[Rfam]
RNA sequence: UAAUAACACCUUUUUGCUAUUUCGACUAAUGAUGCAAUGACACGUGAGAUAACUUUUUCACGUGUCAUUAUGUUAUUGGCCGGAAAUAACAAAACAUUGCUAUUC
Numbered sequence: 001u002a003a004u005a006a007c008a009c010c011u012u013u014u015u016g017c018u019a020u021u022u023c024g025a026c027u028a029a030u031g032a033u034g035c036a037a038u039g040a041c042a043c044g045u046g047a048g049a050u051a052a053c054u055u056u057u058u059c060a061c062g063u064g065u066c067a068u069u070a071u072g073u074u075a076u077u078g079g080c081c082g083g084a085a086a087u088a089a090c091a092a093a094a095c096a097u098u099g100c101u102a103u104u105c
Base pairs, nucleotide, nucleotide: 002104003103004102005101012094013093014092015091016090018088019087020086021084022083023082024081026079027078028077029076030075031074032073033072034071036069037068038067039066040065041064042063043062044061045060046059047058048057049056
Record summary
This 105-nucleotide sequence from Prunus avium belongs to the Rfam family "MIR6274 microRNA precursor family". It scores 82 bits against the family's covariance model. Lineage of the source: Eukaryota > Spermatophyta > Magnoliopsida > Amygdaleae > Prunus.